[Rfam]
RNA sequence: UUGAUUUGUCCUAAGUCAAACUUGUUUAGCUUUUACCAAAUUUAUAAAAAAAAUAUAACAACUAUACUAUCAAACAUAUACACUAUCAAAACAUAUUCCAUGGUGGAUUCAACCAAAUAAAUUCGGUAUUAUAAAUGUUGCUAUAUUUUUCUAUAAACUUGGUCAGAAUUGAACAAGUUUGACUUAGAACAAACCAAA
Dot-bracket structure: ....(((((.((((((((((((((((.....(((........((.(((((...((.((((..((((...((.((...............................................)).))...))))..))))..))..))))).))...........)))....)))))))))))))))).))))).....
Rfam assigns this 198-nucleotide RNA sequence from Dichanthelium oligosanthes to the family "MIR1435 microRNA precursor family". The base pairs follow the family's consensus structure, which was predicted with RNAalifold. Taxonomically the source falls in Dichanthelium (Eukaryota, Streptophytina, Tracheophyta, Magnoliopsida).